[Rfam]
Guanidine-II riboswitch aptamer (mini-ykkC): a 44-nucleotide sequence from Martelella endophytica. Simpler in structure and has fewer highly conserved nucleotide positions than the ykkC-yxkD leader. Despite this each of its two stem-loop structures directly bind free guanidine. Therefore, mini-ykkC RNA motif represents a distinct class of guanidine-sensing RNAs. Its crystal structure was also determined. The literature on the family includes a 2007 paper in Nucleic Acids Res by Weinberg et al., "Identification of 22 candidate structured RNAs in bacteria using the CMfinder comparative genomics pipeline".
RNA sequence: CGUGCGGGACGACCCGCGCAUCUUCUCAUUCCGGGACGGCCCGG
Dot-bracket structure: .(((((((....)))))))...........(((((....)))))
Rfam links the family to the GO term regulation of gene expression.